Shown here is a 74-nucleotide sequence from Methanothermus fervidus, a member of the family "tRNA". It is annotated as a transfer RNA. NCBI's taxonomy places the organism under Archaea, Methanobacteriati, Methanobacteria, Methanobacteriales, Methanothermus. It is one of the family's seed sequences.

RNA sequence: GGGCCCGUAGCUCAGUCUGGUAGAGCGCUUGGCUUUUAACCAAGUAGUCGCGGGUUCAAAUCCCGUCGGGCCCG
Numbered sequence: 001g002g003g004c005c006c007g008u009a010g011c012u013c014a015g016u017c018u019g020g021u022a023g024a025g026c027g028c029u030u031g032g033c034u035u036u037u038a039a040c041c042a043a044g045u046a047g048u049c050g051c052g053g054g055u056u057c058a059a060a061u062c063c064c065g066u067c068g069g070g071c072c073c074g
Stems, first nucleotide, its partner, number of pairs: 001073007010026004028044005050066005